[Rfam]
RNA sequence: AACCAUGUGAUGAACACAAAGCGAACUAUUCUUUCGCCUUUUACUAAAGAAUACAGUGUGUUCGUCACGUUAUAAUGGUAUAAUCUAAUUUUUGUUGGGUUUAACUUUUUUAAGUUG
Numbered sequence: 001a002a003c004c005a006u007g008u009g010a011u012g013a014a015c016a017c018a019a020a021g022c023g024a025a026c027u028a029u030u031c032u033u034u035c036g037c038c039u040u041u042u043a044c045u046a047a048a049g050a051a052u053a054c055a056g057u058g059u060g061u062u063c064g065u066c067a068c069g070u071u072a073u074a075a076u077g078g079u080a081u082a083a084u085c086u087a088a089u090u091u092u093u094g095u096u097g098g099g100u101u102u103a104a105c106u107u108u109u110u111u112a113a114g115u116u117g
Stems, first nucleotide, its partner, number of pairs: 003078004008067011027053008096117001098116006
Shown here is a 117-nucleotide sequence from Zostera marina, a member of the family "U5 spliceosomal RNA". The family has 180 seed sequences and 28,527 matches in Rfam 15.1. Rfam describes the family as follows. U5 RNA is a component of both types of known spliceosome.